[Rfam]
RNA sequence: CGCGAGGGACGGCCUUCGUGCAACGCGUACCACAGCGGGACGGCCCGC
Numbered sequence: 001c002g003c004g005a006g007g008g009a010c011g012g013c014c015u016u017c018g019u020g021c022a023a024c025g026c027g028u029a030c031c032a033c034a035g036c037g038g039g040a041c042g043g044c045c046c047g048c
Stems, first nucleotide, its partner, number of pairs: 001020008035048005
Rfam assigns this 48-nucleotide sequence from Pseudomonas graminis to the family "Guanidine-II riboswitch aptamer (mini-ykkC)". The match comes from Rfam's covariance-model search (40 bits). The source organism's lineage runs through Bacteria, Pseudomonadati, Pseudomonadota, Pseudomonadaceae and Pseudomonas.